This 100-nucleotide RNA from Ornithinibacillus hominis belongs to the Rfam family "Purine riboswitch aptamer".
A search with the family's covariance model found it, with a score of 78 bits.
Taxonomically the source falls in Ornithinibacillus (Bacteria, Bacillati, Bacillota, Bacilli).

[Rfam]
RNA sequence: CAUCAAAAGAAUACAGAUCCUCAUAUAUUUCUUGGAAUAUGGCCUUGAAGUCUCUACCUGGCACCGUAAAUGCUGGACUAUGAGGGAAGAUGCGUCAUUG
Numbered sequence: 001c002a003u004c005a006a007a008a009g010a011a012u013a014c015a016g017a018u019c020c021u022c023a024u025a026u027a028u029u030u031c032u033u034g035g036a037a038u039a040u041g042g043c044c045u046u047g048a049a050g051u052c053u054c055u056a057c058c059u060g061g062c063a064c065c066g067u068a069a070a071u072g073c074u075g076g077a078c079u080a081u082g083a084g085g086g087a088a089g090a091u092g093c094g095u096c097a098u099u100g
Stems, first nucleotide, its partner, number of pairs: 018086008029049003034044002058076006
Rfam describes the family as follows. Riboswitches are metabolite binding domains within certain messenger RNAs that serve as precision sensors for their corresponding targets. Gene Ontology term of the family: purine nucleobase biosynthetic process.